A member of the RNA family "ZMP/ZTP riboswitch aptamer (pfl RNA motif)" from Paenibacillus cellulosilyticus, 80 nucleotides long. It scores 55 bits against the family's covariance model. Taxonomically the source falls in Paenibacillus (Bacteria, Bacillati, Caryophanales, Paenibacillaceae).
RNA sequence: ACACGUAUAUGUGACUGGCGAAGCAUGGGUAACCAUGGGGGAGCAUAUAACGAUUGUGGCCGGACGCCUGGGCAGAGGUA
Numbered sequence: 001a002c003a004c005g006u007a008u009a010u011g012u013g014a015c016u017g018g019c020g021a022a023g024c025a026u027g028g029g030u031a032a033c034c035a036u037g038g039g040g041g042a043g044c045a046u047a048u049a050a051c052g053a054u055u056g057u058g059g060c061c062g063g064a065c066g067c068c069u070g071g072g073c074a075g076a077g078g079u080a
Stems, first nucleotide, its partner, number of pairs: 006049007015040002017068004025036004057075001059073003